transfer-messenger RNA: a 377-nucleotide RNA sequence from Malikia granosa. The family's RNA type in Rfam is non-coding RNA gene. It scores 203 bits against the family's covariance model. Lineage of the source: Bacteria > Pseudomonadati > Pseudomonadota > Burkholderiales > Malikia.

[Rfam]
Nucleotides: 377
Stems, first nucleotide, its partner, number of pairs: 001373007020346008034333003038330004044321005049066005054079006112132007134193006141158004147208003151204003211239006219231001221255002225251001257294010269282003273313004279305001350366005
Number, partner (000 for none) and nucleotide at each position: 001373g002372g003371g004370g005369c006368u007367g008000c009000a010000u011000u012000g013000g014000u015000u016000u017000c018000g019000a020346c021345g022344u023343g024342g025341g026340u027339u028000c029000g030000g031000a032000c033000a034333c035332g036331c037000a038330g039329c040328a041327g042000g043000g044321c045320a046319u047318g048317u049066c050065g051064a052063g053062g054079u055078u056077c057076u058075g059074u060000c061000a062053c063052c064051u065050c066049g067000u068000a069000a070000a071000a072000c073000c074059g075058c076057a077056g078055a079054a080000a081000a082000a083000a084000a085000c086000u087000a088000a089000c090000u091000g092000c093000a094000a095000a096000c097000g098000a099000c100000g101000a102000a103000c104000g105000u106000u107000u108000c109000g110000c111000a112132c113131u114130c115129g116128c117127c118126g119000c120000u121000u122000a123000a124000u125000c126118c127117g128116g129115u130114g131113a132112g133000c134193c135192u136191u137190g138189c139188a140000a141158c142157a143156g144155u145000u146000g147208g148207c149206c150000g151204a152203u153202g154000g155144g156143c157142u158141g159000g160000g161000c162000a163000a164000g165000g166000g167000c168000a169000g170000u171000c172000g173000u174000a175000a176000g177000a178000c179000u180000g181000u182000c183000c184000a185000g186000g187000c188139u189138g190137c191136a192135a193134g194000g195000g196000a197000a198000c199000u200000u201000a202153c203152a204151u205000g206149g207148g208147c209000u210000g211239g212238u213237c214236a215235u216234c217000a218000a219231g220000c221255g222254g223000g224000c225251a226000a227000c228000u229000u230000g231219c232000c233000g234216g235215g236214u237213g238212a239211c240000g241000a242000g243000a244000u245000u246000c247000a248000a249000g250000g251225u252000u253000g254222c255221u256000g257294g258293c259292c260291g261290g262289g263288u264287g265286c266285g267000u268000a269282g270281c271280g272000u273313g274312u275311c276310g277000c278000u279305g280271c281270g282269c283000g284000a285266u286265g287264c288263a289262u290261c291260u292259g293258g294257c295000g296000a297000g298000a299000c300000u301000c302000a303000a304000a305279u306000c307000a308000g309000a310276c311275g312274a313273c314000u315000a316000c317048a318047c319046a320045u321044g322000u323000a324000g325000a326000a327041c328040u329039g330038c331036g332035c333034g334000a335000a336000g337000a338000a339027g340026g341025c342024u343023u344022g345021c346020g347000g348000a349000c350366g351365g352364g353363g354362g355000u356000u357000c358000a359000a360000a361000u362354c363353c364352c365351c366350c367007c368006a369005g370004c371003u372002c373001c374000a375000c376000c377000a